[Rfam]
RNA: Mammalian CPEB3 ribozyme
RNA sequence: GGUCUCAAGUUAGAGGCCAUAGCAGAAGCACUUGCAGUACAGCCUUGUCAGAUUCCAAUGAAUCUAUUAAUUCUGCU
Dot-bracket structure: .............[[[[...((((((((.(.......).).]]]]....((((((....)))))).....)))))))
Numbered sequence: 001g002g003u004c005u006c007a008a009g010u011u012a013g014a015g016g017c018c019a020u021a022g023c024a025g026a027a028g029c030a031c032u033u034g035c036a037g038u039a040c041a042g043c044c045u046u047g048u049c050a051g052a053u054u055c056c057a058a059u060g061a062a063u064c065u066a067u068u069a070a071u072u073c074u075g076c077u
Stems, first nucleotide, its partner, number of pairs: 014045004021077007028040001030038001050065006